[Rfam]
RNA sequence: AACUAAUCUUAUUUGCUCUUAGGUGUUACAAUUGUAAGUGAGAAAGAAAACUCACAGAAAUAAGAUAUCACAUUAAAUACUGAUAAUAUUUAA
Numbered sequence: 001a002a003c004u005a006a007u008c009u010u011a012u013u014u015g016c017u018c019u020u021a022g023g024u025g026u027u028a029c030a031a032u033u034g035u036a037a038g039u040g041a042g043a044a045a046g047a048a049a050a051c052u053c054a055c056a057g058a059a060a061u062a063a064g065a066u067a068u069c070a071c072a073u074u075a076a077a078u079a080c081u082g083a084u085a086a087u088a089u090u091u092a093a
Base pairs, nucleotide, nucleotide: 008064009063010062011061012060013059038055039054040053041052042051073093074092075091076090077089078088079087
The family of this 93-nucleotide sequence is "PGK RNA".
The family's RNA type in Rfam is cis-regulatory element.